[Rfam]
RNA sequence: AGUGUAGCCUCCUAAAUGCACUUAGCCCUUAUUAAAGGGCUUUUU
Numbered sequence: 001a002g003u004g005u006a007g008c009c010u011c012c013u014a015a016a017u018g019c020a021c022u023u024a025g026c027c028c029u030u031a032u033u034a035a036a037g038g039g040c041u042u043u044u045u
Stems, first nucleotide, its partner, number of pairs: 002019004024041006
Streptococcus sRNA SpF51: a 45-nucleotide sequence from Streptococcus mitis. The literature on the family includes a 2012 paper in PLoS Pathog by Mann et al., "Control of virulence by small RNAs in Streptococcus pneumoniae". The source organism's lineage runs through Bacteria, Bacillati, Bacillota, Streptococcaceae and Streptococcus mitis. It is annotated as a small RNA.